Shown here is a 107-nucleotide RNA sequence from Bradymonas sediminis, a member of the family "TPP riboswitch aptamer (THI element)".
RNA sequence: AGUUGCGACACGGGGUGUCCCGGCGGCCAGGGCCGCUGUGGGCUGAGAUAAUACCCGUCGAACCUGAUCCAGUUCAUACUGGCGAAGGGAUGUCAGCCUAGCGGCUU
Numbered sequence: 001a002g003u004u005g006c007g008a009c010a011c012g013g014g015g016u017g018u019c020c021c022g023g024c025g026g027c028c029a030g031g032g033c034c035g036c037u038g039u040g041g042g043c044u045g046a047g048a049u050a051a052u053a054c055c056c057g058u059c060g061a062a063c064c065u066g067a068u069c070c071a072g073u074u075c076a077u078a079c080u081g082g083c084g085a086a087g088g089g090a091u092g093u094c095a096g097c098c099u100a101g102c103g104g105c106u107u
Stems, first nucleotide, its partner, number of pairs: 007094004011057004016051001017043004063088003069082004
Rfam describes the family as follows. Vitamin B(1) in its active form thiamin pyrophosphate (TPP) is an essential coenzyme that is synthesised by coupling of pyrimidine and thiazole moieties in bacteria. Pairs were carried over by alignment from the consensus structure, which is taken from published work.